[Rfam]
RNA sequence: GAAUUCAAUGAAUAAAAACUCAAUUUUUCAGAAAAAUGUUUAAAUGUUUCAAAUAAAAUGU
Numbered sequence: 001g002a003a004u005u006c007a008a009u010g011a012a013u014a015a016a017a018a019c020u021c022a023a024u025u026u027u028u029c030a031g032a033a034a035a036a037u038g039u040u041u042a043a044a045u046g047u048u049u050c051a052a053a054u055a056a057a058a059u060g061u
Stems, first nucleotide, its partner, number of pairs: 014028005033041003
RNA: bablM sRNA